Shown here is a 115-nucleotide sequence from Camelus bactrianus, a member of the family "Small nucleolar RNA SNORA69".
Rfam 15.1 lists 808 matches to the family in 584 species.
About the family: U69 is a member of the H/ACA class of small nucleolar RNAs (snoRNAs) which act as guides in the the modification of uridines to pseudouridines.
It scores 82 bits against the family's covariance model.
The base pairs follow the family's consensus structure, which was predicted with PFOLD.
The source organism's lineage runs through Eukaryota, Deuterostomia, Boreoeutheria, Artiodactyla and Camelus.
RNA sequence: AAAGCAGGUUGCAAUUACAGUGCUUCGUUUUGUGAAAGUACAAGAAAAUCUGUGUUGGUCAUUUUUGAUUUUGCCUUUAUCGGGGUAAAAUCAUGACAGAUUGACAUGGACAAUU
Number, nucleotide and partner (000 for none) at each position: 001a000002a000003a000004g000005c000006a000007g000008g000009u000010u000011g000012c000013a000014a000015u000016u000017a000018c000019a000020g041021u040022g039023c038024u037025u036026c000027g000028u000029u000030u000031u000032g000033u000034g000035a000036a025037a024038g023039u022040a021041c020042a000043a000044g000045a000046a000047a000048a000049u000050c109051u108052g107053u106054g105055u104056u103057g102058g101059u100060c099061a000062u000063u000064u000065u000066u093067g092068a091069u090070u089071u088072u087073g086074c085075c084076u083077u082078u000079a000080u000081c000082g077083g076084g075085g074086u073087a072088a071089a070090a069091u068092c067093a066094u000095g000096a000097c000098a000099g060100a059101u058102u057103g056104a055105c054106a053107u052108g051109g050110a000111c000112a000113a000114u000115u000